[Rfam]
RNA sequence: GUUGCGAUCCUACGAGGGAUGAUCAGCGAC
Numbered sequence: 001g002u003u004g005c006g007a008u009c010c011u012a013c014g015a016g017g018g019a020u021g022a023u024c025a026g027c028g029a030c
Stems, first nucleotide, its partner, number of pairs: 001030005007020005

This 30-nucleotide RNA from Candidatus Frankia alpina belongs to the Rfam family "CRISPR RNA direct repeat element". Gene Ontology term of the family: defense response. Pairs were carried over by alignment from the consensus structure, which was predicted with WAR.